Shown here is a 306-nucleotide RNA sequence from Digitaria exilis, a member of the family "Plant signal recognition particle RNA". Taxonomically the source falls in Digitaria (Eukaryota, Viridiplantae, Liliopsida, Panicodae).
RNA sequence: GCCGAGCUCAGUAGCGUGGGCCUGUAACCCAAGUGGGGGCAUUAAGGUGGUGUGGAUGUUUGGUGCGGCCUCUUGGUUUGGGCCUGCGGUGUGCCUUUGUUGGCCUGCCCGUUCCAAGUUGGUAGUGGCCUGUGGGGGCUCUGGCAAAAGCUUGGGCCUCCCUGGACCUGAAGUGGCAGGAAUGGCGUGAGGCUGGCUUCACAGAGCAGCGAUCACUGCCCGCUUCCAACGGUGGGAGGAUAACAGGCCGCUGCACCACGGGCCCAAUACAGGCCCGGAGUCCCACUAUAACAGACCACCACUUUU
Numbered sequence: 001g002c003c004g005a006g007c008u009c010a011g012u013a014g015c016g017u018g019g020g021c022c023u024g025u026a027a028c029c030c031a032a033g034u035g036g037g038g039g040c041a042u043u044a045a046g047g048u049g050g051u052g053u054g055g056a057u058g059u060u061u062g063g064u065g066c067g068g069c070c071u072c073u074u075g076g077u078u079u080g081g082g083c084c085u086g087c088g089g090u091g092u093g094c095c096u097u098u099g100u101u102g103g104c105c106u107g108c109c110c111g112u113u114c115c116a117a118g119u120u121g122g123u124a125g126u127g128g129c130c131u132g133u134g135g136g137g138g139c140u141c142u143g144g145c146a147a148a149a150g151c152u153u154g155g156g157c158c159u160c161c162c163u164g165g166a167c168c169u170g171a172a173g174u175g176g177c178a179g180g181a182a183u184g185g186c187g188u189g190a191g192g193c194u195g196g197c198u199u200c201a202c203a204g205a206g207c208a209g210c211g212a213u214c215a216c217u218g219c220c221c222g223c224u225u226c227c228a229a230c231g232g233u234g235g236g237a238g239g240a241u242a243a244c245a246g247g248c249c250g251c252u253g254c255a256c257c258a259c260g261g262g263c264c265c266a267a268u269a270c271a272g273g274c275c276c277g278g279a280g281u282c283c284c285a286c287u288a289u290a291a292c293a294g295a296c297c298a299c300c301a302c303u304u305u306u
Stems, first nucleotide, its partner, number of pairs: 001040003004023001006021005028037003044305009054296001057293002059290001061288001063286003067282002070280004075275005080265007089257001091256003095253001101250007109239002112237005118230005124224003127167001129165002132162001134161008143152003168173001175220005184213001186211003193204003
Its family is annotated with SRP-dependent cotranslational protein targeting to membrane, signal sequence recognition and signal recognition particle, endoplasmic reticulum targeting in the Gene Ontology.